[Rfam]
Description:
TPP riboswitch aptamer (THI element): a 112-nucleotide RNA sequence from Mycobacterium tuberculosis. The sequence is in the family's curated seed alignment. Taxonomically the source falls in Mycobacterium tuberculosis complex (Bacteria, Actinomycetes, Mycobacteriaceae, Mycobacterium).
RNA sequence: GGGUACCCACGCGGGAGCGCAACGCCGAGUGCGCUGAGAGGACGGCUCGGGGCCGUCGACCGUACGAACCUGACCGGGUAAUGCCGGCGUAGGGAGUUGCAAAUGACCAUCA
Numbered sequence: 001g002g003g004u005a006c007c008c009a010c011g012c013g014g015g016a017g018c019g020c021a022a023c024g025c026c027g028a029g030u031g032c033g034c035u036g037a038g039a040g041g042a043c044g045g046c047u048c049g050g051g052g053c054c055g056u057c058g059a060c061c062g063u064a065c066g067a068a069c070c071u072g073a074c075c076g077g078g079u080a081a082u083g084c085c086g087g088c089g090u091a092g093g094g095a096g097u098u099g100c101a102a103a104u105g106a107c108c109a110u111c112a
Stems, first nucleotide, its partner, number of pairs: 007099001009097002011063004017034005041057007069093004074087004